[Rfam]
RNA sequence: UCCAGGGGUUUCUGCUGUGCGUGGCACAGGGGGGCCACCCGGCCACCCCUGCGGAAUCAACAUCAAGAGAUUUCAGAAGCACAAUUUUUAAAGUGGGGGCUGCCGGUAUCCACCCGUUCCAGCGUUUGC
Number, nucleotide and partner (000 for none) at each position: 001u000002c000003c000004a000005g000006g000007g000008g080009u079010u078011u077012c076013u026014g025015c024016u023017g022018u000019g000020c000021g000022u017023g016024g015025c014026a013027c051028a050029g049030g048031g047032g046033g044034g043035c042036c041037a000038c000039c000040c000041g036042g035043c034044c033045a000046c032047c031048c030049c029050u028051g027052c000053g074054g073055a072056a071057u070058c069059a000060a000061c000062a000063u000064c000065a000066a000067g000068a000069g058070a057071u056072u055073u054074c053075a000076g012077a011078a010079g009080c008081a000082c000083a000084a000085u000086u000087u000088u000089u000090a000091a000092a000093g000094u000095g000096g000097g127098g126099g125100c124101u000102g123103c122104c000105g120106g119107u000108a118109u000110c116111c000112a000113c000114c000115c000116g110117u000118u108119c106120c105121a000122g103123c102124g100125u099126u098127u097128g000129c000
The family of this 129-nucleotide sequence from Zapornia atra is "U11 spliceosomal RNA". Taxonomically the source falls in Zapornia (Eukaryota, Metazoa, Chordata, Archosauria). It is annotated as a spliceosomal small nuclear RNA. The base pairs follow the family's consensus structure, which is taken from published work. The match comes from Rfam's covariance-model search (70 bits).